Overview:
M-box riboswitch aptamer (ykoK leader): a 162-nucleotide sequence from Vescimonas fastidiosa. From the family's description: M-box riboswitch, also know as ykoK leader is described as a metaloregulatory RNA that sense divalent metals and function as a genetic control element of genes related to divalent metal transport in bacteria. It was first reported upstream of the B.subtilis ykoK gene and genes with related functions in other bacteria. The source organism's lineage runs through Bacteria, Bacillati, Clostridia, Eubacteriales and Vescimonas.

[Rfam]
RNA sequence: AUAAUAUUCCGGUAGGUAAGGCUACCGCAGGGAUACGGACUGCUGCCGCGAAGUGGUGGAGACACCAUAAGAUGGUUUGAACAGGCGAUAUCGAAACCAAGGUAUCAUCUAAUGCAGUUUCAUUGCCCCGCGAUGCUAAAGCUUGUUACGGUGGACAAUAGC
Numbered sequence: 001a002u003a004a005u006a007u008u009c010c011g012g013u014a015g016g017u018a019a020g021g022c023u024a025c026c027g028c029a030g031g032g033a034u035a036c037g038g039a040c041u042g043c044u045g046c047c048g049c050g051a052a053g054u055g056g057u058g059g060a061g062a063c064a065c066c067a068u069a070a071g072a073u074g075g076u077u078u079g080a081a082c083a084g085g086c087g088a089u090a091u092c093g094a095a096a097c098c099a100a101g102g103u104a105u106c107a108u109c110u111a112a113u114g115c116a117g118u119u120u121c122a123u124u125g126c127c128c129c130g131c132g133a134u135g136c137u138a139a140a141g142c143u144u145g146u147u148a149c150g151g152u153g154g155a156c157a158a159u160a161g162c
Base pairs, nucleotide, nucleotide: 005158008155009154010153011149013100015143016142017141020137021136022135026132027131028130030128031127032126039118040117041116042115043114045076046075047074048073055066056065057064058063084109085108087106090103091102092101